A member of the RNA family "L31-Actinobacteria ribosomal protein leader" from Georgenia subflava, 44 nucleotides long. A reference for the family is Eckert and Weinberg (2020), "Discovery of 20 novel ribosomal leader candidates in bacteria and archaea", BMC Microbiol. Rfam classes the family as a cis-regulatory leader.

[Rfam]
Nucleotides: 044
Stems, first nucleotide, its partner, number of pairs: 004043001006042001008040004016034007
Number, partner (000 for none) and nucleotide at each position: 001000u002000c003000g004043g005000c006042c007000u008040c009039c010038g011037g012000u013000u014000c015000a016034c017033g018032u019031g020030c021029g022028c023000g024000a025000g026000c027000g028022g029021c030020g031019u032018a033017c034016g035000a036000c037011c038010c039009g040008g041000g042006g043004c044000a

Lineage of the source: Bacteria > Bacillati > Actinomycetes > Allobogoriellales > Georgenia. It scores 36 bits against the family's covariance model.